Notes
mir-34 microRNA precursor family: a 69-nucleotide sequence from Atractosteus spatula. Rfam describes the family as follows. Human mir-34a was discovered computationally and later experimentally verified. The mature sequence is excised from the 5' arm of the hairpin. Taxonomically the source falls in Atractosteus (Eukaryota, Opisthokonta, Gnathostomata, Semionotiformes). The family's consensus secondary structure was predicted with RNAalifold.
[Rfam]
RNA sequence: GGUCUGUAGGCAGUGUAGUUAGCUGAUUGUUCUCCUGCCUGCAAUCACUAACCACACUACCAACACAAC
Number, nucleotide and partner (000 for none) at each position: 001g000002g000003u067004c000005u065006g064007u000008a000009g061010g060011c000012a058013g057014u056015g055016u054017a000018g052019u051020u050021a049022g048023c000024u047025g046026a045027u044028u043029g042030u041031u000032c000033u000034c000035c000036u000037g000038c000039c000040u000041g030042c029043a028044a027045u026046c025047a024048c022049u021050a020051a019052c018053c000054a016055c015056a014057c013058u012059a000060c010061c009062a000063a000064c006065a005066c000067a003068a000069c000